[Rfam]
RNA sequence: AGUAUUCGCGAUGAAGAUAGACAAGCUCCCUCUUCUGAUAAUUAUAGUUGAGGAAAUUUGCUGGCUGAAUCGAACCUUAAAUCUUAUUGCCAUCACUGAGUGA
Numbered sequence: 001a002g003u004a005u006u007c008g009c010g011a012u013g014a015a016g017a018u019a020g021a022c023a024a025g026c027u028c029c030c031u032c033u034u035c036u037g038a039u040a041a042u043u044a045u046a047g048u049u050g051a052g053g054a055a056a057u058u059u060g061c062u063g064g065c066u067g068a069a070u071c072g073a074a075c076c077u078u079a080a081a082u083c084u085u086a087u088u089g090c091c092a093u094c095a096c097u098g099a100g101u102g103a
Base pairs, nucleotide, nucleotide: 006103007102008101009100
Dot-bracket structure: .....((((..........................................................................................))))